[Rfam]
RNA: tRNA
RNA sequence: AGGGUUGUAGCUCAGCGGUAGAGCGCCUGAUUGUUAAUCGGGUCGUCGCAGGUUCGAGCCCUGCCAACCCUG
Number, nucleotide and partner (000 for none) at each position: 001a071002g070003g069004g068005u067006u066007g065008u000009a000010g024011c023012u022013c021014a000015g000016c000017g000018g000019u000020a000021g013022a012023g011024c010025g000026c042027c041028u040029g039030a038031u000032u000033g000034u000035u000036a000037a000038u030039c029040g028041g027042g026043u000044c000045g000046u000047c000048g064049c063050a062051g061052g060053u000054u000055c000056g000057a000058g000059c000060c052061c051062u050063g049064c048065c007066a006067a005068c004069c003070c002071u001072g000